Description:
Rfam assigns this 67-nucleotide sequence from Plantimonas leprariae to the family "Fluoride riboswitch aptamer (crcB RNA motif)". Gene Ontology terms of the family: response to fluoride and positive regulation of gene expression.
[Rfam]
RNA sequence: GACACCGAUGGGGAUGGGGUCCCCCGACAACCGCCCGCGCCUGCGGGCUGAUGACUCCUGUCAACCG
Numbered sequence: 001g002a003c004a005c006c007g008a009u010g011g012g013g014a015u016g017g018g019g020u021c022c023c024c025c026g027a028c029a030a031c032c033g034c035c036c037g038c039g040c041c042u043g044c045g046g047g048c049u050g051a052u053g054a055c056u057c058c059u060g061u062c063a064a065c066c067g
Stems, first nucleotide, its partner, number of pairs: 010025004016058006033048006